[Rfam]
RNA sequence: GAAUGUCGCAAGAGCUUAUCCUCCUCCCAAGCUCAAGCGAUUGAAGGUUGGCUUUCUCCUCCCAAGCCGACCUUACUUAAAGGCACUCGCUGUACCUCCUCCCACAGCGAGUGCCGUUA
Numbered sequence: 001g002a003a004u005g006u007c008g009c010a011a012g013a014g015c016u017u018a019u020c021c022u023c024c025u026c027c028c029a030a031g032c033u034c035a036a037g038c039g040a041u042u043g044a045a046g047g048u049u050g051g052c053u054u055u056c057u058c059c060u061c062c063c064a065a066g067c068c069g070a071c072c073u074u075a076c077u078u079a080a081a082g083g084c085a086c087u088c089g090c091u092g093u094a095c096c097u098c099c100u101c102c103c104a105c106a107g108c109g110a111g112u113g114c115c116g117u118u119a
Stems, first nucleotide, its partner, number of pairs: 007039003012034005044074010083114011
RNA: Alphaproteobacterial ar14